The record is a 79-nucleotide sequence from Nicotiana tabacum, which matches "Small nucleolar RNA R12" in Rfam. The literature on the family includes a 2003 paper in Nucleic Acids Res by Chen et al., "The high diversity of snoRNAs in plants: identification and comparative study of 120 snoRNA genes from Oryza sativa". A search with the family's covariance model found it, with a score of 69 bits. It is annotated as a C/D-box small nucleolar RNA. From the family's description: snoR12 is a C/D box small nucleolar RNA, which acts as a methylation guide for 25S ribosomal RNA in plants. snoR12 has been alternatively named snoZ44 in Arabidopsis and snoZ131 in rice. The family's consensus secondary structure was predicted with PFOLD.
[Rfam]
RNA sequence: GUAAGGAUGAUGAAGAAAUCAUUCGGAUUCCCACUGAUGUGUAUUCUGUGAUUACUACAACCAGCUACUUCUGACUUGC
Number, nucleotide and partner (000 for none) at each position: 001g079002u078003a077004a076005g075006g000007a000008u000009g000010a000011u000012g000013a000014a000015g000016a000017a000018a000019u000020c000021a000022u000023u000024c000025g000026g000027a000028u000029u000030c000031c000032c000033a000034c000035u000036g000037a000038u000039g000040u000041g000042u000043a000044u000045u000046c000047u000048g000049u000050g000051a000052u000053u000054a000055c000056u000057a000058c000059a000060a000061c000062c000063a000064g000065c000066u000067a000068c000069u000070u000071c000072u000073g000074a000075c005076u004077u003078g002079c001